[Rfam]
RNA sequence: UUGGUUUAUCUUAAGUCAAACUUAUUCAACUUUGACUAAGUUUAUAGAAAAAUAUAACAAUACCUAUAAUAUCAAAUAUAUACACUAUCAAAAUAUAUUUCAUGGUGGAUUCAAUUAAACAAAUUUGGUAUUAUAGAUAUUGUUAUAUUUUUCUAUAAAUUUGGUCAACAUUAAACAAGUUUGAUUUAAAAUAAACCAAA
Dot-bracket structure: ....(((((.(((((((((((((.((....(.(((.........((((((((..(((.((((.(((((...((((((.............................................))))))...))))).)))).)))..)))))))).........)))).....)).))))))))))))).))))).....

A member of the RNA family "MIR1435 microRNA precursor family" from Dichanthelium oligosanthes, 200 nucleotides long. The family's consensus secondary structure was predicted with RNAalifold. Rfam links the family to the GO terms RISC complex and miRNA-mediated post-transcriptional gene silencing. Lineage of the source: Eukaryota > Euphyllophyta > Panicoideae > Dichantheliinae > Dichanthelium. The match comes from Rfam's covariance-model search (107 bits).